[Rfam]
RNA sequence: GCUGUAUAAAGAUGUAGCGAACGCAAGACAGUUCCGCAUCUCCCUUUACGGCGACGAACUCUUUAGAAGUCUUGGAAACAAUAUCCGUUGCGUGGCUGCGUGUCGAAACGGGUUGAUUCAGGAUGGAGUAGGUUCGCCGUAUGACCUUGGUUGAAAAACCUAAAGAUAAUCUUACAAUAUCACAAGGUUUACUUUGUGUAUGUUGGUAAGUUGCGGUUCC
Numbered sequence: 001g002c003u004g005u006a007u008a009a010a011g012a013u014g015u016a017g018c019g020a021a022c023g024c025a026a027g028a029c030a031g032u033u034c035c036g037c038a039u040c041u042c043c044c045u046u047u048a049c050g051g052c053g054a055c056g057a058a059c060u061c062u063u064u065a066g067a068a069g070u071c072u073u074g075g076a077a078a079c080a081a082u083a084u085c086c087g088u089u090g091c092g093u094g095g096c097u098g099c100g101u102g103u104c105g106a107a108a109c110g111g112g113u114u115g116a117u118u119c120a121g122g123a124u125g126g127a128g129u130a131g132g133u134u135c136g137c138c139g140u141a142u143g144a145c146c147u148u149g150g151u152u153g154a155a156a157a158a159c160c161u162a163a164a165g166a167u168a169a170u171c172u173u174a175c176a177a178u179a180u181c182a183c184a185a186g187g188u189u190u191a192c193u194u195u196g197u198g199u200a201u202g203u204u205g206g207u208a209a210g211u212u213g214c215g216g217u218u219c220c
Stems, first nucleotide, its partner, number of pairs: 001052006008045001010041006017035001019034004023029001069124008083113007094104002130147005136217006142166001149160004171210005176204005
RNA: IS605-orfB-I RNA